[Rfam]
RNA sequence: AUGUUUUGAGGGAUGAAUGCGUCCCUCAAAUUCAAGCAUCCUUCACUUUGUCAGCAUUUUCGAUCCGUAAUUUGCUGGCCAUAAUUGGAUGGAAAUUU
Numbered sequence: 001a002u003g004u005u006u007u008g009a010g011g012g013a014u015g016a017a018u019g020c021g022u023c024c025c026u027c028a029a030a031u032u033c034a035a036g037c038a039u040c041c042u043u044c045a046c047u048u049u050g051u052c053a054g055c056a057u058u059u060u061c062g063a064u065c066c067g068u069a070a071u072u073u074g075c076u077g078g079c080c081a082u083a084a085u086u087g088g089a090u091g092g093a094a095a096u097u098u
Base pairs, nucleotide, nucleotide: 037091038090039089040088050079051078052077053076054075055074056073

This 98-nucleotide RNA from Salvia splendens belongs to the Rfam family "Small nucleolar RNA snoR99". Lineage of the source: Eukaryota > eudicotyledons > Pentapetalae > Lamiaceae > core Calosphace. A search with the family's covariance model found it, with a score of 56 bits. Pairs were carried over by alignment from the consensus structure, which was predicted with WAR. It is annotated as an H/ACA-box small nucleolar RNA.